Shown here is an 80-nucleotide sequence from Anabas testudineus, a member of the family "mir-194 microRNA precursor family". The match comes from Rfam's covariance-model search (72 bits). Rfam links the family to the GO terms RISC complex and miRNA-mediated post-transcriptional gene silencing.

RNA sequence: GGGUCUCACCAGCUGUAACAGCAUCUCCAUAUGGAAAGACCAUGGCUUCCAGUGGAGCUGCUGUUAUCUAUGGAGGGAUG
Dot-bracket structure: ........(((...((((((((..((((((.(((..............)))))))))..))))))))...))).......
Numbered sequence: 001g002g003g004u005c006u007c008a009c010c011a012g013c014u015g016u017a018a019c020a021g022c023a024u025c026u027c028c029a030u031a032u033g034g035a036a037a038g039a040c041c042a043u044g045g046c047u048u049c050c051a052g053u054g055g056a057g058c059u060g061c062u063g064u065u066a067u068c069u070a071u072g073g074a075g076g077g078a079u080g
Stems, first nucleotide, its partner, number of pairs: 009073003015067008025057006032051003